[Rfam]
RNA sequence: UCUAAAAGCAGGUAAGCCACUGACUAACGCACAUUGAGCGUGUGACAGAUCCACUGUGCGUGUGACAGCGGCUAACCUGGUUUUGGGAAAACCUCUG
Numbered sequence: 001u002c003u004a005a006a007a008g009c010a011g012g013u014a015a016g017c018c019a020c021u022g023a024c025u026a027a028c029g030c031a032c033a034u035u036g037a038g039c040g041u042g043u044g045a046c047a048g049a050u051c052c053a054c055u056g057u058g059c060g061u062g063u064g065a066c067a068g069c070g071g072c073u074a075a076c077c078u079g080g081u082u083u084u085g086g087g088a089a090a091a092c093c094u095c096u097g
Stems, first nucleotide, its partner, number of pairs: 005083003009079004015073004020068003024064001025062002028060006035053002

Background: This 97-nucleotide sequence from Oryzias sinensis belongs to the Rfam family "mir-210 microRNA precursor family".